About this RNA
Shown here is a 70-nucleotide RNA from Homarus americanus, a member of the family "mir-1175 microRNA precursor family". The source organism's lineage runs through Eukaryota, Stomatocarida, Pleocyemata, Nephropoidea and Homarus. A search with the family's covariance model found it, with a score of 66 bits. Pairs were carried over by alignment from the consensus structure, which was predicted with RNAalifold. Its family is annotated with RISC complex and miRNA-mediated post-transcriptional gene silencing in the Gene Ontology.
RNA sequence: AGGGCCAAGUGGAGAAGUGGUCUCCUCACUUUGACUUACUAGUGAGAUUCAACUCCUCCAACUUAGCUCC
Dot-bracket structure: ......((((((((..((....((.(((((..........)))))))....).).))))).)))......